[Rfam]
RNA sequence: GUCUUCUGUGAAUGAUGAGAAUUGUGUUGGUAGGGACAUCUGAAAGUAAUGAUGUUUACCAACGUCUCUGAACAGGC
Numbered sequence: 001g002u003c004u005u006c007u008g009u010g011a012a013u014g015a016u017g018a019g020a021a022u023u024g025u026g027u028u029g030g031u032a033g034g035g036a037c038a039u040c041u042g043a044a045a046g047u048a049a050u051g052a053u054g055u056u057u058a059c060c061a062a063c064g065u066c067u068c069u070g071a072a073c074a075g076g077c
Stems, first nucleotide, its partner, number of pairs: 001077004
Annotation
This 77-nucleotide sequence from Hymenochirus boettgeri belongs to the Rfam family "Small nucleolar RNA SNORD74". On this family, see Galardi et al., Mol Cell Biol 2002: "Purified box C/D snoRNPs are able to reproduce site-specific 2'-O-methylation of target RNA in vitro". NCBI's taxonomy places the organism under Eukaryota, Opisthokonta, Deuterostomia, Euteleostomi, Hymenochirus. It is annotated as a C/D-box small nucleolar RNA. The base pairs follow the family's consensus structure, which was predicted with PFOLD. Gene Ontology terms of the family: RNA processing and nucleolus.